The record is an 84-nucleotide RNA from Sarcophilus harrisii, which matches "Small nucleolar RNA SNORD121A" in Rfam.
A search with the family's covariance model found it, with a score of 80 bits.
It is annotated as a C/D-box small nucleolar RNA.
On this family, see Yang et al., Nucleic Acids Res 2006: "snoSeeker: an advanced computational package for screening of guide and orphan snoRNA genes in the human genome".

[Rfam]
RNA sequence: GUCCAGAGACUAUGAUGUGAUAGUUUCCAAGCACAUAUCUGAUUAGUAUAUGUUGAAAUCCAUCUAUCUCUGAGUUUUCUGGAC
Numbered sequence: 001g002u003c004c005a006g007a008g009a010c011u012a013u014g015a016u017g018u019g020a021u022a023g024u025u026u027c028c029a030a031g032c033a034c035a036u037a038u039c040u041g042a043u044u045a046g047u048a049u050a051u052g053u054u055g056a057a058a059u060c061c062a063u064c065u066a067u068c069u070c071u072g073a074g075u076u077u078u079c080u081g082g083a084c
Base pairs, nucleotide, nucleotide: 001084002083003082004081005080006079007077008076009075010074
Lineage of the source: Eukaryota > Teleostomi > Sarcopterygii > Dipnotetrapodomorpha > Sarcophilus.